[Rfam]
RNA sequence: ACUUGUUUUGUUGGUGGUCAUCUAACCACGCUCCGAUUCAUCGGUGCAUGGACGGUUACACAGCCGUGAUCAUCCGUGCGUGGUUAGAUGACCAUCAGCAAACAUGUU
Numbered sequence: 001a002c003u004u005g006u007u008u009u010g011u012u013g014g015u016g017g018u019c020a021u022c023u024a025a026c027c028a029c030g031c032u033c034c035g036a037u038u039c040a041u042c043g044g045u046g047c048a049u050g051g052a053c054g055g056u057u058a059c060a061c062a063g064c065c066g067u068g069a070u071c072a073u074c075c076g077u078g079c080g081u082g083g084u085u086a087g088a089u090g091a092c093c094a095u096c097a098g099c100a101a102a103c104a105u106g107u108u
Base pairs, nucleotide, nucleotide: 005103006102007101008100010099011098012097013096014095015094016093017092018091019090020089021088022087023086024085025084026083027082028081029080030079031078
This 108-nucleotide RNA from Eragrostis curvula belongs to the Rfam family "MIR827 microRNA precursor family".
Its family is annotated with miRNA-mediated post-transcriptional gene silencing and RISC complex in the Gene Ontology.